Rfam assigns this 62-nucleotide RNA sequence from Prolemur simus to the family "U7 small nuclear RNA".

[Rfam]
RNA sequence: AAGUGUUGCAGCUCCUUCAGAAUUUGUGUAGCAUGUUUUCUAGUAACAACUGGAAAAUGUCC
Numbered sequence: 001a002a003g004u005g006u007u008g009c010a011g012c013u014c015c016u017u018c019a020g021a022a023u024u025u026g027u028g029u030a031g032c033a034u035g036u037u038u039u040c041u042a043g044u045a046a047c048a049a050c051u052g053g054a055a056a057a058u059g060u061c062c
Base pairs, nucleotide, nucleotide: 034059035058036057037056038055039054040053041052042051043050044049
Animal histone pre-mRNAs are spliced by a different mechanism than nuclear pre-mRNAs and self-splicing introns.
The literature on the family includes a 1994 paper in Nucleic Acids Res by Spycher et al., "3' end processing of mouse histone pre-mRNA: evidence for additional base-pairing between U7 snRNA and pre-mRNA".
NCBI's taxonomy places the organism under Eukaryota, Metazoa, Euteleostomi, Tetrapoda, Prolemur.